[Rfam]
RNA: small nucleolar RNA snoR114
Organism: Brassica rapa
RNA sequence: GAGCUGUGAAGAAAUUGGUUUAAGCGUUGGUUGGGUCCUUCGCAUUCAUCUGAUCUUCAGAUGAUAUAGCCGUAAACCUGAGCUC
Numbered sequence: 001g002a003g004c005u006g007u008g009a010a011g012a013a014a015u016u017g018g019u020u021u022a023a024g025c026g027u028u029g030g031u032u033g034g035g036u037c038c039u040u041c042g043c044a045u046u047c048a049u050c051u052g053a054u055c056u057u058c059a060g061a062u063g064a065u066a067u068a069g070c071c072g073u074a075a076a077c078c079u080g081a082g083c084u085c
Stems, first nucleotide, its partner, number of pairs: 001085004